RNA sequence: AAGAGCAAAAAGAAAGUAUAAUGAAUCUUCUAUUAACAAAUACAUAUUGGUGGUGGCACUCUCAACUCAAAAAGUCGUGAGCCAAAUCGGUGUGUAUUUACAAAUAGAAAAUUUUUAAAAUACAAAGCCUAUC
Numbered sequence: 001a002a003g004a005g006c007a008a009a010a011a012g013a014a015a016g017u018a019u020a021a022u023g024a025a026u027c028u029u030c031u032a033u034u035a036a037c038a039a040a041u042a043c044a045u046a047u048u049g050g051u052g053g054u055g056g057c058a059c060u061c062u063c064a065a066c067u068c069a070a071a072a073a074g075u076c077g078u079g080a081g082c083c084a085a086a087u088c089g090g091u092g093u094g095u096a097u098u099u100a101c102a103a104a105u106a107g108a109a110a111a112u113u114u115u116u117a118a119a120a121u122a123c124a125a126a127g128c129c130u131a132u133c
Base pairs, nucleotide, nucleotide: 034100035099040097041096042095043094044093045092046091047090049088050087051086056082057081063077065075066074067073
RNA: Bacteroidete tryptophan peptide leader RNA